The family of this 89-nucleotide RNA from Chinchilla lanigera is "ctgf/hcs24 CAESAR". For this family Rfam cites "Identification of an RNA element that confers post-transcriptional repression of connective tissue growth factor/hypertrophic chondrocyte specific 24 (ctgf/hcs24) gene: similarities to retroviral RNA-protein interactions" (Kubota et al., Oncogene, 2000). About the family: The 3' UTR of human connective tissue growth factor/hypertrophic chondrocyte specific 24 (ctgf/hcs24) mRNA has been shown to repress ctgf gene expression. Reference identified a minimal RNA element, predicted to form a stable secondary structure, which acts as a post-transcriptional cis-acting element of structure-anchored repression (CAESAR), probably through direct interactions with as yet unknown nuclear factors. The source organism's lineage runs through Eukaryota, Bilateria, Vertebrata, Hystricomorpha and Chinchilla.
[Rfam]
RNA sequence: AUGGAGACAUGGCCUAGAGCCAGAGCGUGAGCGACAUUAACUCCAUUAACUCGUUAGUCUGUAACUUGAACUAAUUCACAUCUCAUUUU
Numbered sequence: 001a002u003g004g005a006g007a008c009a010u011g012g013c014c015u016a017g018a019g020c021c022a023g024a025g026c027g028u029g030a031g032c033g034a035c036a037u038u039a040a041c042u043c044c045a046u047u048a049a050c051u052c053g054u055u056a057g058u059c060u061g062u063a064a065c066u067u068g069a070a071c072u073a074a075u076u077c078a079c080a081u082c083u084c085a086u087u088u089u
Stems, first nucleotide, its partner, number of pairs: 004084004010022004027079004